A member of the RNA family "c-di-GMP-I riboswitch aptamer" from Virgibacillus salinus, 85 nucleotides long. Lineage of the source: Bacteria > Bacillati > Bacillota > Bacilli > Virgibacillus. It scores 67 bits against the family's covariance model.

[Rfam]
RNA sequence: UGUACGAAAGGGCAAAAUCGUUGAAAAGCGAUGACGCAAAACUACAGGGGCUAAAGUCGGAUGACAAUGCUUGCCAGAUAUCGAA
Numbered sequence: 001u002g003u004a005c006g007a008a009a010g011g012g013c014a015a016a017a018u019c020g021u022u023g024a025a026a027a028g029c030g031a032u033g034a035c036g037c038a039a040a041a042c043u044a045c046a047g048g049g050g051c052u053a054a055a056g057u058c059g060g061a062u063g064a065c066a067a068u069g070c071u072u073g074c075c076a077g078a079u080a081u082c083g084a085a
Stems, first nucleotide, its partner, number of pairs: 012037002017032006040079001042077002047075002049071003056065003